Rfam assigns this 174-nucleotide sequence from Anaerovirgula multivorans to the family "glmS glucosamine-6-phosphate activated ribozyme aptamer". For this family Rfam cites "Control of gene expression by a natural metabolite-responsive ribozyme" (Winkler et al., Nature, 2004). A search with the family's covariance model found it, with a score of 109 bits. The family's RNA type in Rfam is riboswitch. About the family: This entry contains a glucosamine-6-phosphate activated ribozyme that is found in the mRNA for GlmS. GlmS is an enzyme that uses fructose-6-phosphate and glutamine to generate glucosamine-6-phosphate. The ribozyme catalyses self cleavage of the glmS mRNA that is thought to regulate GlmS activity. Gene Ontology terms of the family: regulation of gene expression and catalytic activity.
RNA sequence: AUUGAAAAGAAAGCGCCUGGACUUAGAUUGCUGCGGAAGAAAUGAGAUCUAAGUUGACGAGGAACAGGGUUUAUCGAGAUAUCGGCGGAUGCCCUGCGGUGUGAUUCACCACCGAUAACGGAUCUACAAAGCCGUCAAGCAAUUGAUGGUACAAAAUGAUCUUAGUGAAGGGUC
Numbered sequence: 001a002u003u004g005a006a007a008a009g010a011a012a013g014c015g016c017c018u019g020g021a022c023u024u025a026g027a028u029u030g031c032u033g034c035g036g037a038a039g040a041a042a043u044g045a046g047a048u049c050u051a052a053g054u055u056g057a058c059g060a061g062g063a064a065c066a067g068g069g070u071u072u073a074u075c076g077a078g079a080u081a082u083c084g085g086c087g088g089a090u091g092c093c094c095u096g097c098g099g100u101g102u103g104a105u106u107c108a109c110c111a112c113c114g115a116u117a118a119c120g121g122a123u124c125u126a127c128a129a130a131g132c133c134g135u136c137a138a139g140c141a142a143u144u145g146a147u148g149g150u151a152c153a154a155a156a157u158g159a160u161c162u163u164a165g166u167g168a169a170g171g172g173u174c
Base pairs, nucleotide, nucleotide: 020055021054022053023052024051025050026049027048029046065096066095067094068093069092074085075084076083077082097114098113099112100111101110120162121161122160123159124158132149133148134147135146136145137144138143